Annotation
The record is a 211-nucleotide RNA from Oncorhynchus tshawytscha, which matches "Small nucleolar RNA U3" in Rfam. Rfam describes the family as follows. Small nucleolar RNAs (snoRNAs) are involved in the processing and modification of rRNA in the nucleolus. Rfam links the family to the GO terms RNA processing and nucleolus. The family has 87 seed sequences and 19,072 matches in Rfam 15.1. The match comes from Rfam's covariance-model search (119 bits). A reference for the family is Zwieb (1997), "The uRNA database", Nucleic Acids Res. It is annotated as a C/D-box small nucleolar RNA.
[Rfam]
RNA sequence: AAGACUAUACUUUCAGGGAUCUUUUCUAUAGUGCUGUACUUGAGAAGUGUGGUCUAAAGUGGUAGAUCUCGCUAUCCAGGAUGACGAUUAAAGAUAUUCCGUUCAGAGCAGGAAUCUGGUGGUUAGAAGUGACUUGCUCAUUUUUCUUCCACCUUUGAUGACUGUUCCUUGUUCUUCAAUGAACGUGGAUGAAGGAUAUGUUCUGAGUGGA
Numbered sequence: 001a002a003g004a005c006u007a008u009a010c011u012u013u014c015a016g017g018g019a020u021c022u023u024u025u026c027u028a029u030a031g032u033g034c035u036g037u038a039c040u041u042g043a044g045a046a047g048u049g050u051g052g053u054c055u056a057a058a059g060u061g062g063u064a065g066a067u068c069u070c071g072c073u074a075u076c077c078a079g080g081a082u083g084a085c086g087a088u089u090a091a092a093g094a095u096a097u098u099c100c101g102u103u104c105a106g107a108g109c110a111g112g113a114a115u116c117u118g119g120u121g122g123u124u125a126g127a128a129g130u131g132a133c134u135u136g137c138u139c140a141u142u143u144u145u146c147u148u149c150c151a152c153c154u155u156u157g158a159u160g161a162c163u164g165u166u167c168c169u170u171g172u173u174c175u176u177c178a179a180u181g182a183a184c185g186u187g188g189a190u191g192a193a194g195g196a197u198a199u200g201u202u203c204u205g206a207g208u209g210g211a
Stems, first nucleotide, its partner, number of pairs: 001041003008033004015027004050064002053062002075211004094199006102193004108165003118153004126145002128142005168187001170185005